A member of the RNA family "Acido-Lenti-1 RNA" from Brumimicrobium oceani, 46 nucleotides long. The base pairs follow the family's consensus structure, which is taken from published work. The family's RNA type in Rfam is small RNA. The organism belongs to Brumimicrobium, within Bacteria. It scores 55 bits against the family's covariance model.
RNA sequence: CCUAGGACUUUCGUCCUAGGCUUUUUAAUGUCGUACCUUCGGCACU
Numbered sequence: 001c002c003u004a005g006g007a008c009u010u011u012c013g014u015c016c017u018a019g020g021c022u023u024u025u026u027a028a029u030g031u032c033g034u035a036c037c038u039u040c041g042g043c044a045c046u
Base pairs, nucleotide, nucleotide: 001020002019003018004017005016006015007014008013033045034044036042037041